[Rfam]
A member of the RNA family "6S / SsrS RNA" from Oceanisphaera avium, 183 nucleotides long. The match comes from Rfam's covariance-model search (109 bits). Taxonomically the source falls in Oceanisphaera (Bacteria, Pseudomonadati, Gammaproteobacteria, Aeromonadaceae). About the family: E. coli 6S RNA was the first non coding RNA to be sequenced, but its function was unknown until recently. It consists of 184 nucleotides that fold into an extended hairpin structure with a large single-stranded internal bulge.
RNA sequence: CUUUCCCUGGGGUGUUCGAUAGUAGGGUGACGUCCCUGAGCCGAUAUCAACAGCAAAGGAAAGCCGUGUUGUUUACUAUUGUGCAUGCUCGGCCCGACCGAGAAGCCUGCGGUAGAUACCGGAGUUCCGCCUUGAACCGUACGGUUCAAGGACUCACACCCACACCGGCAUCCUGGGGAUCCU
Numbered sequence: 001c002u003u004u005c006c007c008u009g010g011g012g013u014g015u016u017c018g019a020u021a022g023u024a025g026g027g028u029g030a031c032g033u034c035c036c037u038g039a040g041c042c043g044a045u046a047u048c049a050a051c052a053g054c055a056a057a058g059g060a061a062a063g064c065c066g067u068g069u070u071g072u073u074u075a076c077u078a079u080u081g082u083g084c085a086u087g088c089u090c091g092g093c094c095c096g097a098c099c100g101a102g103a104a105g106c107c108u109g110c111g112g113u114a115g116a117u118a119c120c121g122g123a124g125u126u127c128c129g130c131c132u133u134g135a136a137c138c139g140u141a142c143g144g145u146u147c148a149a150g151g152a153c154u155c156a157c158a159c160c161c162a163c164a165c166c167g168g169c170a171u172c173c174u175g176g177g178g179a180u181c182c183u
Stems, first nucleotide, its partner, number of pairs: 004179012017167002032153004037148006058128003064122003069118001071117007083106002088102005
On this family, see Wassarman and Storz, Cell 2000: "6S RNA regulates E. coli RNA polymerase activity". Rfam classes the family as a non-coding RNA gene.